[Rfam]
RNA sequence: AACCUUAUAUCGCUGAGUCCAAUGAUUUGGAGCGGGGGAACCAAUUUUGUGCAUUGUCACUUGGGGUGAAUCUUUCAUGAUGAAAGUAGGGCUACUCUUUAGGCCCGAAUCCGACAGCUAACUUCGUAAGCGUUUGGAGAGGAGGU
Numbered sequence: 001a002a003c004c005u006u007a008u009a010u011c012g013c014u015g016a017g018u019c020c021a022a023u024g025a026u027u028u029g030g031a032g033c034g035g036g037g038g039a040a041c042c043a044a045u046u047u048u049g050u051g052c053a054u055u056g057u058c059a060c061u062u063g064g065g066g067u068g069a070a071u072c073u074u075u076c077a078u079g080a081u082g083a084a085a086g087u088a089g090g091g092c093u094a095c096u097c098u099u100u101a102g103g104c105c106c107g108a109a110u111c112c113g114a115c116a117g118c119u120a121a122c123u124u125c126g127u128a129a130g131c132g133u134u135u136g137g138a139g140a141g142g143a144g145g146u
Stems, first nucleotide, its partner, number of pairs: 011132004018031003032127006042063002064112003072086004089106004
Shown here is a 146-nucleotide RNA from Bacillus cytotoxicus, a member of the family "c-di-AMP riboswitch aptamer (ydaO/yuaA leader)". It is one of the family's seed sequences.